RNA: small nucleolar RNA snoR137
Organism: Cynara cardunculus
RNA sequence: GUUGCUUCAUAAUGGUGAACUCUCUCAAUAUUAAAUGGGAGAAAUUCAAGUUUCCGGAGCAUAAAUUGAAUAUUUAUAUCGCCAGUAUUAAACAGCUCGAUGUGUAUACAAUCACAUCGACGUUACCUGUCUCCUGGCACAUUU
Numbered sequence: 001g002u003u004g005c006u007u008c009a010u011a012a013u014g015g016u017g018a019a020c021u022c023u024c025u026c027a028a029u030a031u032u033a034a035a036u037g038g039g040a041g042a043a044a045u046u047c048a049a050g051u052u053u054c055c056g057g058a059g060c061a062u063a064a065a066u067u068g069a070a071u072a073u074u075u076a077u078a079u080c081g082c083c084a085g086u087a088u089u090a091a092a093c094a095g096c097u098c099g100a101u102g103u104g105u106a107u108a109c110a111a112u113c114a115c116a117u118c119g120a121c122g123u124u125a126c127c128u129g130u131c132u133c134c135u136g137g138c139a140c141a142u143u144u
Base pairs, nucleotide, nucleotide: 003061004060005059006058007057008056016048017047018046019045021042022041023040024039025038081138082137083136084135085134087132094124095123096122098119099118100117101116102115